Glycine riboswitch aptamer: a 120-nucleotide sequence from Novosphingobium sp. CF614.
[Rfam]
RNA sequence: UAGCGACACUCUGGAAAGUGCCACGUCCAGCAGGACGGGGCCGCCGACGGUGUAACCUCGCCCGCCUUGCAAGAGGCAGCGCGGGGGAAGCUCUCAGGUUUCCGUGACAGAGGGGGCACC
Numbered sequence: 001u002a003g004c005g006a007c008a009c010u011c012u013g014g015a016a017a018g019u020g021c022c023a024c025g026u027c028c029a030g031c032a033g034g035a036c037g038g039g040g041c042c043g044c045c046g047a048c049g050g051u052g053u054a055a056c057c058u059c060g061c062c063c064g065c066c067u068u069g070c071a072a073g074a075g076g077c078a079g080c081g082c083g084g085g086g087g088a089a090g091c092u093c094u095c096a097g098g099u100u101u102c103c104g105u106g107a108c109a110g111a112g113g114g115g116g117c118a119c120c
Stems, first nucleotide, its partner, number of pairs: 007114001009112005020041003043099003046095002050093001052091001056086006
This family represents the bacterial glycine riboswitch. Its family is annotated with glycine biosynthetic process in the Gene Ontology. A search with the family's covariance model found it, with a score of 46 bits.